[Rfam]
RNA: SAM riboswitch aptamer (S box leader)
Organism: Amycolatopsis antarctica
RNA sequence: AGGCCAUCCUGAGCGGCCGAGAGACCUGGCUCGACGACGCCGCAGCAACCACCCUUCGGGGCAGGUGCUACCGCCAGGACCGAUGGAGG
Numbered sequence: 001a002g003g004c005c006a007u008c009c010u011g012a013g014c015g016g017c018c019g020a021g022a023g024a025c026c027u028g029g030c031u032c033g034a035c036g037a038c039g040c041c042g043c044a045g046c047a048a049c050c051a052c053c054c055u056u057c058g059g060g061g062c063a064g065g066u067g068c069u070a071c072c073g074c075c076a077g078g079a080c081c082g083a084u085g086g087a088g089g
Stems, first nucleotide, its partner, number of pairs: 004086005013043005021032003026077004044069004049065002052060003073081001